[Rfam]
RNA sequence: UCCCAAUGAAGAAGAACAUCACCUGUCUUACUCCUUGACUUUGCCCCAGAACCUGCAAAGGUUGAACCCACUGGGGCAGGCUGGGAGGCAGGAGGAAACUGCGUUCCAGAGGGAACUGACUGAGGGGC
Numbered sequence: 001u002c003c004c005a006a007u008g009a010a011g012a013a014g015a016a017c018a019u020c021a022c023c024u025g026u027c028u029u030a031c032u033c034c035u036u037g038a039c040u041u042u043g044c045c046c047c048a049g050a051a052c053c054u055g056c057a058a059a060g061g062u063u064g065a066a067c068c069c070a071c072u073g074g075g076g077c078a079g080g081c082u083g084g085g086a087g088g089c090a091g092g093a094g095g096a097a098a099c100u101g102c103g104u105u106c107c108a109g110a111g112g113g114a115a116c117u118g119a120c121u122g123a124g125g126g127g128c
Base pairs, nucleotide, nucleotide: 001127002126003125004124

Shown here is a 128-nucleotide RNA sequence from Sarcophilus harrisii, a member of the family "Small nucleolar RNA SNORD22".
The family's consensus secondary structure was predicted with PFOLD.
On this family, see Tycowski et al., Nature 1996: "A mammalian gene with introns instead of exons generating stable RNA products".
NCBI's taxonomy places the organism under Eukaryota, Opisthokonta, Craniata, Theria, Sarcophilus.